[Rfam]
Rfam assigns this 67-nucleotide sequence from Oxyruncus cristatus to the family "mir-34 microRNA precursor family". Rfam's curators write: Human mir-34a was discovered computationally and later experimentally verified. The mature sequence is excised from the 5' arm of the hairpin. Clan: mir-34 clan. The literature on the family includes a 2003 paper in Science by Lim et al., "Vertebrate microRNA genes". Pairs were carried over by alignment from the consensus structure, which was predicted with RNAalifold.
RNA sequence: GGUUACUAGGCAGUGUAGUUAGCUGAUUGCCUAGAGCAACAAUCACUAGCCACACAGCCAGGUAAAA
Numbered sequence: 001g002g003u004u005a006c007u008a009g010g011c012a013g014u015g016u017a018g019u020u021a022g023c024u025g026a027u028u029g030c031c032u033a034g035a036g037c038a039a040c041a042a043u044c045a046c047u048a049g050c051c052a053c054a055c056a057g058c059c060a061g062g063u064a065a066a067a
Stems, first nucleotide, its partner, number of pairs: 003065004009059002013055004018050005024045006